[Rfam]
Shown here is a 73-nucleotide RNA sequence from Streptococcus sp. X16XC17, a member of the family "L17 ribosomal protein downstream element". It is annotated as a cis-regulatory element.
RNA sequence: UGAGUGUUAUGAUGAUGGAAGAAAUAUCUUCUUCUUAGUCUAGCUCUGGUCUACCGCUGAUUUAUUUCGGCGG
Numbered sequence: 001u002g003a004g005u006g007u008u009a010u011g012a013u014g015a016u017g018g019a020a021g022a023a024a025u026a027u028c029u030u031c032u033u034c035u036u037a038g039u040c041u042a043g044c045u046c047u048g049g050u051c052u053a054c055c056g057c058u059g060a061u062u063u064a065u066u067u068c069g070g071c072g073g
Stems, first nucleotide, its partner, number of pairs: 002046004011040003017035006054073007